[Rfam]
This 155-nucleotide sequence from Bacillus sp. FJAT-27986 belongs to the Rfam family "glmS glucosamine-6-phosphate activated ribozyme aptamer". On this family, see Winkler et al., Nature 2004: "Control of gene expression by a natural metabolite-responsive ribozyme".
RNA sequence: UUAGUUAUUAAAGCGCCAGGACUGGAGUAACCCAGUUGACGAGGUGGAGGUUAUCGAUCUUUCGGCGGAUGCCUUCCGGUUGCAUGCACAACUGACCCUCUUUUUACUAAAUCAGUUUGGUGACAAAUUGGACAGAAUAAAAAGAGAUGCAUAUA
Numbered sequence: 001u002u003a004g005u006u007a008u009u010a011a012a013g014c015g016c017c018a019g020g021a022c023u024g025g026a027g028u029a030a031c032c033c034a035g036u037u038g039a040c041g042a043g044g045u046g047g048a049g050g051u052u053a054u055c056g057a058u059c060u061u062u063c064g065g066c067g068g069a070u071g072c073c074u075u076c077c078g079g080u081u082g083c084a085u086g087c088a089c090a091a092c093u094g095a096c097c098c099u100c101u102u103u104u105u106a107c108u109a110a111a112u113c114a115g116u117u118u119g120g121u122g123a124c125a126a127a128u129u130g131g132a133c134a135g136a137a138u139a140a141a142a143a144g145a146g147a148u149g150c151a152u153a154u155a
Base pairs, nucleotide, nucleotide: 020037021036022035023034024033025032046076047075048074049073050072054065055064056063057062077094078093079092080091081090082089099145100144101143102142103141104140105139113130114129115128116127117126118125119124